[Rfam]
RNA sequence: UACGCCUGCAGUUUAUGAGGAUGAGAACCUCCGAAGGAGGUUUGAGCCGAGCGCAGCGAGACCACGUUGCUUUAGCGACGGCCCGCAGGGCAAGCAUCGCAGAUGCGCGUCAUCCUCUCUCGCCGACCA
Numbered sequence: 001u002a003c004g005c006c007u008g009c010a011g012u013u014u015a016u017g018a019g020g021a022u023g024a025g026a027a028c029c030u031c032c033g034a035a036g037g038a039g040g041u042u043u044g045a046g047c048c049g050a051g052c053g054c055a056g057c058g059a060g061a062c063c064a065c066g067u068u069g070c071u072u073u074a075g076c077g078a079c080g081g082c083c084c085g086c087a088g089g090g091c092a093a094g095c096a097u098c099g100c101a102g103a104u105g106c107g108c109g110u111c112a113u114c115c116u117c118u119c120u121c122g123c124c125g126a127c128c129a
Stems, first nucleotide, its partner, number of pairs: 015120001017117004022112001033091001041087001043085002048058002065080006
Record summary:
RtT RNA: a 129-nucleotide RNA sequence from Serratia ficaria. NCBI's taxonomy places the organism under Bacteria, Gammaproteobacteria, Enterobacterales, Yersiniaceae, Serratia. A reference for the family is Bosl and Kersten (1991), "A novel RNA product of the tyrT operon of Escherichia coli", Nucleic Acids Res. It is annotated as a cis-regulatory element. The base pairs follow the family's consensus structure, which is taken from published work.